[Rfam]
Nucleotides: 180
Base pairs, nucleotide, nucleotide: 006175007174008173009172010171011170016083017082018081019080020079023076024075033067034066035065036064037063038062087116088115089114090113091111092110093109094108095107096106097105117144118143120141121140122139123138124137125136127134146165147164148163149162150161151160152159
Number, partner (000 for none) and nucleotide at each position: 001000a002000g003000u004000g005000a006175g007174g008173a009172u010171a011170g012000a013000g014000g015000c016083g017082c018081a019080a020079a021000a022000a023076c024075c025000a026000u027000c028000a029000g030000u031000a032000c033067a034066c035065a036064a037063g038062c039000c040000g041000a042000g043000g044000a045000g046000u047000a048000u049000g050000a051000g052000c053000u054000c055000u056000u057000g058000g059000g060000a061000c062038g063037u064036u065035u066034g067033u068000c069000g070000a071000a072000a073000g074000g075024g076023g077000a078000a079020u080019u081018u082017g083016c084000c085000g086000a087116a088115g089114c090113g091111g092110u093109u094108g095107g096106a097105a098000g099000c100000u101000c102000a103000u104000a105097u106096u107095c108094c109093a110092a111091u112000g113090c114089g115088c116087u117144g118143g119000g120141c121140c122139u123138g124137c125136u126000c127134u128000u129000g130000a131000a132000a133000a134127a135000a136125g137124g138123c139122a140121g141120g142000a143118c144117u145000g146165u147164c148163a149162u150161a151160u152159a153000g154000g155000a156000a157000a158000c159152u160151a161150u162149a163148u164147g165146g166000u167000g168000g169000g170011c171010u172009a173008u174007c175006u176000g177000a178000u179000g180000c
This 180-nucleotide RNA sequence from Planococcus salinus belongs to the Rfam family "Lysine riboswitch aptamer". The organism belongs to Planococcus, within Bacteria. The match comes from Rfam's covariance-model search (119 bits). Gene Ontology term of the family: lysine biosynthetic process. The base pairs follow the family's consensus structure, which is taken from published work.